UnaL2 LINE 3' element: a 54-nucleotide RNA from Coregonus sp. 'balchen'. NCBI's taxonomy places the organism under Eukaryota, Metazoa, Euteleosteomorpha, Protacanthopterygii, Coregonus.

RNA sequence: AUGACUCACUACUGUAAGUCUCUCUGGAUAAGAGCGUCUGCUAAAUCACUCAAA
Numbered sequence: 001a002u003g004a005c006u007c008a009c010u011a012c013u014g015u016a017a018g019u020c021u022c023u024c025u026g027g028a029u030a031a032g033a034g035c036g037u038c039u040g041c042u043a044a045a046u047c048a049c050u051c052a053a054a
Base pairs, nucleotide, nucleotide: 013043014041015040016039020036022034023033024032025031
The base pairs follow the family's consensus structure, which is taken from published work. From the family's description: The eel long interspersed element (LINE) UnaL2 and its partner short interspersed element (SINE) share a conserved 3' tail containing a stem-loop that is critical for their retrotransposition. Presumably, the first step of retrotransposition is the recognition of their 3' tails by UnaL2-encoded reverse transcriptase. The solution structure of a 17-nucleotide RNA derived from the 3' tail of UnaL2 was determined by NMR. Rfam 15.1 lists 493,311 matches to the family in 99 species. By type it is a cis-regulatory element.